[Rfam]
RNA sequence: UCUAGCUCUGAUUGUCCAAACGCAAUUCUUGUCGGUACUUGUUAGCUACUCAAGAGUUGUGACUGGACAUCCGUGGCUCGA
Numbered sequence: 001u002c003u004a005g006c007u008c009u010g011a012u013u014g015u016c017c018a019a020a021c022g023c024a025a026u027u028c029u030u031g032u033c034g035g036u037a038c039u040u041g042u043u044a045g046c047u048a049c050u051c052a053a054g055a056g057u058u059g060u061g062a063c064u065g066g067a068c069a070u071c072c073g074u075g076g077c078u079c080g081a
Stems, first nucleotide, its partner, number of pairs: 002080001004078004010071003014068005021061011
Rfam assigns this 81-nucleotide sequence from Anopheles stephensi to the family "mir-219 microRNA precursor family". NCBI's taxonomy places the organism under Eukaryota, Protostomia, Altocrustacea, Pterygota, Neocellia.